[Rfam]
RNA sequence: CGGCCGGGUAAACAACGACACACACGUUCCGACACAUGGCUCGGGGUGCUUCCAGGCGCUUCCUCUCUAUUUAUUAGGGAACGGGAGACCGGAGGUUGGGUCAUGAGGGGACGUGGAGGCCUAAC
Numbered sequence: 001c002g003g004c005c006g007g008g009u010a011a012a013c014a015a016c017g018a019c020a021c022a023c024a025c026g027u028u029c030c031g032a033c034a035c036a037u038g039g040c041u042c043g044g045g046g047u048g049c050u051u052c053c054a055g056g057c058g059c060u061u062c063c064u065c066u067c068u069a070u071u072u073a074u075u076a077g078g079g080a081a082c083g084g085g086a087g088a089c090c091g092g093a094g095g096u097u098g099g100g101u102c103a104u105g106a107g108g109g110g111a112c113g114u115g116g117a118g119g120c121c122u123a124a125c
Stems, first nucleotide, its partner, number of pairs: 023115008035105009048096005
Dot-bracket structure: ......................((((((((....(((((((((....(((((.......................................))))))))))))))..))))))))..........
RNA: t44 RNA